[Rfam]
RNA sequence: AUAGCUUCAAGGUCACAAUGCUCACUACGCCCAGAGUGGUGCUCAGUCAUCCACUUUUUUCAUGAGCGGGCCAAGGUCCUGGAAUUUCAACCCCCCUGUUCGCUUGAACAGACCGGUCUUUGCGGACCCUCGACGCCAAUCGCCGAGUUGUGCCCGACUAGAAAUGCGUUUCUUUUCUCUUCAACCUUCGUGGUGUCCCUGAGAAACCUGUAGAGUGGAGGGUAUGGGAGUUGAGAAACUUGGUAUGGGUACGGGUGGGUCGCUUUGCAGGUUGAUUCAUCUCAUGAUGAUGCCCAACAAACUGUUUGGGAAGUGUUGUCUCUUGUGAUAACCCAACUGUAUGGCUUUAGUGCAAUUUGGUGACGCCCUACAACAAGCCUCGUCUGCACUUGUGGCGAGGAGGGUAACUCGAUCAGGACUACUCUGGGGCUGC
Numbered sequence: 001a002u003a004g005c006u007u008c009a010a011g012g013u014c015a016c017a018a019u020g021c022u023c024a025c026u027a028c029g030c031c032c033a034g035a036g037u038g039g040u041g042c043u044c045a046g047u048c049a050u051c052c053a054c055u056u057u058u059u060u061c062a063u064g065a066g067c068g069g070g071c072c073a074a075g076g077u078c079c080u081g082g083a084a085u086u087u088c089a090a091c092c093c094c095c096c097u098g099u100u101c102g103c104u105u106g107a108a109c110a111g112a113c114c115g116g117u118c119u120u121u122g123c124g125g126a127c128c129c130u131c132g133a134c135g136c137c138a139a140u141c142g143c144c145g146a147g148u149u150g151u152g153c154c155c156g157a158c159u160a161g162a163a164a165u166g167c168g169u170u171u172c173u174u175u176u177c178u179c180u181u182c183a184a185c186c187u188u189c190g191u192g193g194u195g196u197c198c199c200u201g202a203g204a205a206a207c208c209u210g211u212a213g214a215g216u217g218g219a220g221g222g223u224a225u226g227g228g229a230g231u232u233g234a235g236a237a238a239c240u241u242g243g244u245a246u247g248g249g250u251a252c253g254g255g256u257g258g259g260u261c262g263c264u265u266u267g268c269a270g271g272u273u274g275a276u277u278c279a280u281c282u283c284a285u286g287a288u289g290a291u292g293c294c295c296a297a298c299a300a301a302c303u304g305u306u307u308g309g310g311a312a313g314u315g316u317u318g319u320c321u322c323u324u325g326u327g328a329u330a331a332c333c334c335a336a337c338u339g340u341a342u343g344g345c346u347u348u349a350g351u352g353c354a355a356u357u358u359g360g361u362g363a364c365g366c367c368c369u370a371c372a373a374c375a376a377g378c379c380u381c382g383u384c385u386g387c388a389c390u391u392g393u394g395g396c397g398a399g400g401a402g403g404g405u406a407a408c409u410c411g412a413u414c415a416g417g418a419c420u421a422c423u424c425u426g427g428g429g430c431u432g433c
Stems, first nucleotide, its partner, number of pairs: 002432003007427003012364004016359003020067005034056006078417005090256004115128005129147004134142001150252007168239005365405005371399001